[Rfam]
RNA: Small nucleolar RNA snoR99
RNA sequence: UUGCUUUAGGAAUUGAACAAAGUCCCUUUACAUCUUAAAUCCAUCUGUUUCACUUUGUCAGCAGUCUUAAAUUGGUUUCUCGCUGAUCAUCUCAAGAUGGGAAAUCA
Dot-bracket structure: .......................................((((((...........((((((.(...............).))))))........))))))......